[Rfam]
RNA sequence: AGUUUAUAAGGCGAUGGAGUUCGCCGUAACCGCCCGCGAGAGCUAAUGACUCCUACCAGUGC
Numbered sequence: 001a002g003u004u005u006a007u008a009a010g011g012c013g014a015u016g017g018a019g020u021u022c023g024c025c026g027u028a029a030c031c032g033c034c035c036g037c038g039a040g041a042g043c044u045a046a047u048g049a050c051u052c053c054u055a056c057c058a059g060u061g062c
Stems, first nucleotide, its partner, number of pairs: 010025004016053006032043002035040001

A member of the RNA family "Fluoride riboswitch aptamer (crcB RNA motif)" from Paenibacillus baekrokdamisoli, 62 nucleotides long. The source organism's lineage runs through Bacteria, Bacilli, Caryophanales, Paenibacillaceae and Paenibacillus.